[Rfam]
A member of the RNA family "Nuclear RNase P" from Suillus discolor, 529 nucleotides long. Rfam links the family to the GO terms ribonuclease P complex, ribonuclease P activity and tRNA processing. Rfam describes the family as follows. Ribonuclease P (RNase P) is a ubiquitous endoribonuclease, found in archaea, bacteria and eukarya as well as chloroplasts and mitochondria. Its best characterised activity is the generation of mature 5'-ends of tRNAs by cleaving the 5'-leader elements of precursor-tRNAs. It scores 77 bits against the family's covariance model. The family's RNA type in Rfam is ribozyme.
RNA sequence: CCAGCUCGAAAGCCACGAAUGCUCAUCACACAGGGCUUCUUCACGCAUCCAAUUCCUGAGCGGGCUAAGGUCUGAGUAUUCUAAUCCUCCUCGAUUGGCUCUAGCAGAGCCCAGCUGUAAUCAGCUGCGCGACGUACCAGAAAAGCAGCUCAUUUUUCAUAUCCCCAAGAUCCUGUGUACAGCAGAGGAGGGCGAGAAUGAAAGCUUUGAAAGGCGUUGCGGGGAUCGGGCGAACUCAUUCAUCGUUGAUGGAUGUUCAGUCAGUCGUCACUAUCGCGCCUUCGCCUGCAAGAAGGCGUUCGAUAGAUGCUAUCAGACGUUCCGGCGAUCAUCGACCUACCUGGGGCACCCUUCUGGCGAACGUUAACGUUUGCCAAUCUUCACUUUCCUUUGCUGGGACUCCAACUCCUUGCGUAUGAGGUGUGACUGAUUGUAUUUGACGAUGGGAUUGGUUCGUCCUUGAGUUCACUUCGUGGCUCGCGUAUCCUUCGUGGAUCGUGAAACUCGAUUCAGACUACUCUCGAACUGG
Numbered sequence: 001c002c003a004g005c006u007c008g009a010a011a012g013c014c015a016c017g018a019a020u021g022c023u024c025a026u027c028a029c030a031c032a033g034g035g036c037u038u039c040u041u042c043a044c045g046c047a048u049c050c051a052a053u054u055c056c057u058g059a060g061c062g063g064g065c066u067a068a069g070g071u072c073u074g075a076g077u078a079u080u081c082u083a084a085u086c087c088u089c090c091u092c093g094a095u096u097g098g099c100u101c102u103a104g105c106a107g108a109g110c111c112c113a114g115c116u117g118u119a120a121u122c123a124g125c126u127g128c129g130c131g132a133c134g135u136a137c138c139a140g141a142a143a144a145g146c147a148g149c150u151c152a153u154u155u156u157u158c159a160u161a162u163c164c165c166c167a168a169g170a171u172c173c174u175g176u177g178u179a180c181a182g183c184a185g186a187g188g189a190g191g192g193c194g195a196g197a198a199u200g201a202a203a204g205c206u207u208u209g210a211a212a213g214g215c216g217u218u219g220c221g222g223g224g225a226u227c228g229g230g231c232g233a234a235c236u237c238a239u240u241c242a243u244c245g246u247u248g249a250u251g252g253a254u255g256u257u258c259a260g261u262c263a264g265u266c267g268u269c270a271c272u273a274u275c276g277c278g279c280c281u282u283c284g285c286c287u288g289c290a291a292g293a294a295g296g297c298g299u300u301c302g303a304u305a306g307a308u309g310c311u312a313u314c315a316g317a318c319g320u321u322c323c324g325g326c327g328a329u330c331a332u333c334g335a336c337c338u339a340c341c342u343g344g345g346g347c348a349c350c351c352u353u354c355u356g357g358c359g360a361a362c363g364u365u366a367a368c369g370u371u372u373g374c375c376a377a378u379c380u381u382c383a384c385u386u387u388c389c390u391u392u393g394c395u396g397g398g399a400c401u402c403c404a405a406c407u408c409c410u411u412g413c414g415u416a417u418g419a420g421g422u423g424u425g426a427c428u429g430a431u432u433g434u435a436u437u438u439g440a441c442g443a444u445g446g447g448a449u450u451g452g453u454u455c456g457u458c459c460u461u462g463a464g465u466u467c468a469c470u471u472c473g474u475g476g477c478u479c480g481c482g483u484a485u486c487c488u489u490c491g492u493g494g495a496u497c498g499u500g501a502a503a504c505u506c507g508a509u510u511c512a513g514a515c516u517a518c519u520c521u522c523g524a525a526c527u528g529g
Stems, first nucleotide, its partner, number of pairs: 001529004007523003012477007020062005034050002037047001039045001072513005087224004097111005112127006129220007148205003478501005